[Rfam]
RNA sequence: AUUCUCGCAUAGGUGAGAAUAACGCUUGGUUUGUGGUUCCAAGCUAGUCGUGAGCAGGGUCGAGAUCGCAGCAUUGUGCUCGGUUGAGUGGCCGUGUUCAUUGAUGAACGUCCCACAGUCU
Numbered sequence: 001a002u003u004c005u006c007g008c009a010u011a012g013g014u015g016a017g018a019a020u021a022a023c024g025c026u027u028g029g030u031u032u033g034u035g036g037u038u039c040c041a042a043g044c045u046a047g048u049c050g051u052g053a054g055c056a057g058g059g060u061c062g063a064g065a066u067c068g069c070a071g072c073a074u075u076g077u078g079c080u081c082g083g084u085u086g087a088g089u090g091g092c093c094g095u096g097u098u099c100a101u102u103g104a105u106g107a108a109c110g111u112c113c114c115a116c117a118g119u120c121u
Stems, first nucleotide, its partner, number of pairs: 001020006024044006033116004047105003050101003059092004064085002070080003

Background:
A member of the RNA family "RAGATH-11 RNA" from Brachionus plicatilis, 121 nucleotides long. NCBI's taxonomy places the organism under Eukaryota, Protostomia, Ploima, Brachionidae, Brachionus. A search with the family's covariance model found it, with a score of 97 bits. On this family, see Weinberg et al., Nat Chem Biol 2015: "New classes of self-cleaving ribozymes revealed by comparative genomics analysis".